Background:
Rfam assigns this 92-nucleotide RNA sequence from Ensete ventricosum to the family "small nucleolar RNA snoR117". Taxonomically the source falls in Ensete (Eukaryota, Euphyllophyta, Magnoliopsida, Musaceae). A search with the family's covariance model found it, with a score of 44 bits. A reference for the family is Chen and Wu (2009), "Mining small RNA sequencing data: a new approach to identify small nucleolar RNAs in Arabidopsis", Nucleic Acids Res. Its family is annotated with RNA processing and nucleolus in the Gene Ontology. By type it is a C/D-box small nucleolar RNA. The base pairs follow the family's consensus structure, which was predicted with RNAalifold.
RNA sequence: GGCCGACGAUGCUAUAGUAUUGUCCGUACCAUCUGAGAUCCGGUAAUGCCGCCGCCUCUCUGAUGUUAUCAUCUAUCCUUCUUCUGAGGCCG
Numbered sequence: 001g002g003c004c005g006a007c008g009a010u011g012c013u014a015u016a017g018u019a020u021u022g023u024c025c026g027u028a029c030c031a032u033c034u035g036a037g038a039u040c041c042g043g044u045a046a047u048g049c050c051g052c053c054g055c056c057u058c059u060c061u062g063a064u065g066u067u068a069u070c071a072u073c074u075a076u077c078c079u080u081c082u083u084c085u086g087a088g089g090c091c092g
Base pairs, nucleotide, nucleotide: 001091002090003089004088